Overview
A member of the RNA family "Lysine riboswitch aptamer" from Desulforamulus hydrothermalis, 192 nucleotides long.
[Rfam]
RNA sequence: AGGUGGGGUAGAGGUUGCGGGUUAUUAAGAGUACUUGUAAUGAGACAGGGAGAGUCGGUGAUUUACAAGGAAAGGAAUGCCCGCCGAAGUGUUGGGAGUGUCCCGCUCUCAAUGCUGGGGUUGUGCCGAACAGGUACAACACUGUCACAGGAGGUAUUUCCUUCAUAUUUCCUGUGGAGCACUAUCUUACUA
Numbered sequence: 001a002g003g004u005g006g007g008g009u010a011g012a013g014g015u016u017g018c019g020g021g022u023u024a025u026u027a028a029g030a031g032u033a034c035u036u037g038u039a040a041u042g043a044g045a046c047a048g049g050g051a052g053a054g055u056c057g058g059u060g061a062u063u064u065a066c067a068a069g070g071a072a073a074g075g076a077a078u079g080c081c082c083g084c085c086g087a088a089g090u091g092u093u094g095g096g097a098g099u100g101u102c103c104c105g106c107u108c109u110c111a112a113u114g115c116u117g118g119g120g121u122u123g124u125g126c127c128g129a130a131c132a133g134g135u136a137c138a139a140c141a142c143u144g145u146c147a148c149a150g151g152a153g154g155u156a157u158u159u160c161c162u163u164c165a166u167a168u169u170u171c172c173u174g175u176g177g178a179g180c181a182c183u184a185u186c187u188u189a190c191u192a
Stems, first nucleotide, its partner, number of pairs: 006187006017084006024078003034069007088116012117143002120140008145177012

Description: Taxonomically the source falls in Desulforamulus hydrothermalis (Bacteria, Bacillota, Clostridia, Desulforamulus).